[Rfam]
Nucleotides: 080
Stems, first nucleotide, its partner, number of pairs: 001080006
Number, partner (000 for none) and nucleotide at each position: 001080a002079g003078c004077c005076c006075u007000a008000u009000u010000g011000a012000u013000g014000a015000a016000c017000g018000u019000u020000a021000u022000a023000u024000a025000u026000c027000a028000a029000a030000u031000u032000a033000a034000a035000a036000g037000u038000a039000g040000u041000g042000g043000a044000c045000u046000g047000a048000u049000c050000u051000c052000c053000a054000u055000u056000g057000a058000u059000g060000a061000u062000a063000a064000u065000c066000u067000u068000g069000u070000u071000c072000u073000g074000a075006a076005g077004g078003g079002u080001u
Small nucleolar RNA R21: an 80-nucleotide RNA. Rfam 15.1 lists 472 matches to the family in 146 species. The match comes from Rfam's covariance-model search (62 bits).